Rfam assigns this 80-nucleotide RNA from Oryza punctata to the family "Small nucleolar RNA R12". By type it is a C/D-box small nucleolar RNA. Rfam's curators write: snoR12 is a C/D box small nucleolar RNA, which acts as a methylation guide for 25S ribosomal RNA in plants. snoR12 has been alternatively named snoZ44 in Arabidopsis and snoZ131 in rice.
[Rfam]
RNA sequence: AUUGGUAAAAUGAAGAAAAAUUACACGUAUUCUCAUUGAUUUUUCAAAAUGAUGUUUACAACCAGCUACUUCUGAUCAAC
Numbered sequence: 001a002u003u004g005g006u007a008a009a010a011u012g013a014a015g016a017a018a019a020a021u022u023a024c025a026c027g028u029a030u031u032c033u034c035a036u037u038g039a040u041u042u043u044u045c046a047a048a049a050u051g052a053u054g055u056u057u058a059c060a061a062c063c064a065g066c067u068a069c070u071u072c073u074g075a076u077c078a079a080c
Base pairs, nucleotide, nucleotide: 002079003078004077005076